[Rfam]
RNA sequence: UGAGCAGGGAUUGUGUAUUUGUGUUGUGUUACAUAUAAAAGCUCUUUGUUUCGCAAAGAUUUCCCUGCUUAAAAAGAACUGUCAGGGGAAAAUGGGGAGUUGUGUUUGAUAUAACAUGUUGAAAUCUCAUCAGUGAUCUCCAUAUCA
Numbered sequence: 001u002g003a004g005c006a007g008g009g010a011u012u013g014u015g016u017a018u019u020u021g022u023g024u025u026g027u028g029u030u031a032c033a034u035a036u037a038a039a040a041g042c043u044c045u046u047u048g049u050u051u052c053g054c055a056a057a058g059a060u061u062u063c064c065c066u067g068c069u070u071a072a073a074a075a076g077a078a079c080u081g082u083c084a085g086g087g088g089a090a091a092a093u094g095g096g097g098a099g100u101u102g103u104g105u106u107u108g109a110u111a112u113a114a115c116a117u118g119u120u121g122a123a124a125u126c127u128c129a130u131c132a133g134u135g136a137u138c139u140c141c142a143u144a145u146c147a
Stems, first nucleotide, its partner, number of pairs: 004068007015044001018041003085141005093136001095134001099131001101129002
RNA: small nucleolar RNA snoR135
Organism: Salix brachista